[Rfam]
RNA sequence: UCCAGGUCUUGGAGUAGGUCAUUGGGUGGAUCCUUUAUUUCCCUAUGUGGGCCACUGGAUGGCUCCUCCAUGGCUUGGAG
Numbered sequence: 001u002c003c004a005g006g007u008c009u010u011g012g013a014g015u016a017g018g019u020c021a022u023u024g025g026g027u028g029g030a031u032c033c034u035u036u037a038u039u040u041c042c043c044u045a046u047g048u049g050g051g052c053c054a055c056u057g058g059a060u061g062g063c064u065c066c067u068c069c070a071u072g073g074c075u076u077g078g079a080g
Base pairs, nucleotide, nucleotide: 002078003077004076005075006074008072010070011069012068013067014066017064018063019062020061021060022059023058025056026055027054028053029052031051032050033049
A member of the RNA family "mir-432 microRNA precursor family" from Sus scrofa, 80 nucleotides long.
Taxonomically the source falls in Sus (Eukaryota, Craniata, Theria, Suina).
It is one of the family's seed sequences.
Gene Ontology terms of the family: RISC complex and miRNA-mediated post-transcriptional gene silencing.